[Rfam]
RNA sequence: CACGUGCUCCGGGGUCGGUGUAAUUCCGAACCGGUGGUGAUAGUCCACGACCCGUUGGCAGCCAGUCAGCGGUGGACCCGGUGUAAUUCCGGGACCGACGGUGAAAGUCCGGAUGGUAGGCAGCACGCA
Numbered sequence: 001c002a003c004g005u006g007c008u009c010c011g012g013g014g015u016c017g018g019u020g021u022a023a024u025u026c027c028g029a030a031c032c033g034g035u036g037g038u039g040a041u042a043g044u045c046c047a048c049g050a051c052c053c054g055u056u057g058g059c060a061g062c063c064a065g066u067c068a069g070c071g072g073u074g075g076a077c078c079c080g081g082u083g084u085a086a087u088u089c090c091g092g093g094a095c096c097g098a099c100g101g102u103g104a105a106a107g108u109c110c111g112g113a114u115g116g117u118a119g120g121c122a123g124c125a126c127g128c129a
Stems, first nucleotide, its partner, number of pairs: 003127006009119001016028003030108002032097002034048004043095002052072002077093005099111003
A member of the RNA family "FMN riboswitch aptamer (RFN element)" from Nostocoides australiense, 129 nucleotides long. Pairs were carried over by alignment from the consensus structure, which is taken from published work. Rfam's curators write: The RFN element is a highly conserved domain that is found frequently in the 5'-untranslated regions of prokaryotic mRNAs that encode for flavin mononucleotide (FMN) biosynthesis and transport proteins.